[Rfam]
RNA sequence: AAGAUGACAGCUGAUCAGCUGCAGGCUGCCUAAAGAUAAUUCGUCUCUGCGGUCUUUGACCACGGAUGUACUGGCACUGGUUGCGAGAUGAAUUUGAGAAGGUCGGGUUUUCCCGGCCUUUUAUUUU
Numbered sequence: 001a002a003g004a005u006g007a008c009a010g011c012u013g014a015u016c017a018g019c020u021g022c023a024g025g026c027u028g029c030c031u032a033a034a035g036a037u038a039a040u041u042c043g044u045c046u047c048u049g050c051g052g053u054c055u056u057u058g059a060c061c062a063c064g065g066a067u068g069u070a071c072u073g074g075c076a077c078u079g080g081u082u083g084c085g086a087g088a089u090g091a092a093u094u095u096g097a098g099a100a101g102g103u104c105g106g107g108u109u110u111u112c113c114c115g116g117c118c119u120u121u122u123a124u125u126u127u
Stems, first nucleotide, its partner, number of pairs: 001031001008028005041091007050080001054079001057076002060074003092126001095123001097122010
Alphaproteobacterial sRNA ar35: a 127-nucleotide sequence from Phyllobacterium sp. YR620. The match comes from Rfam's covariance-model search (52 bits). The literature on the family includes a 2012 paper in RNA Biol by del Val et al., "A survey of sRNA families in alpha-proteobacteria".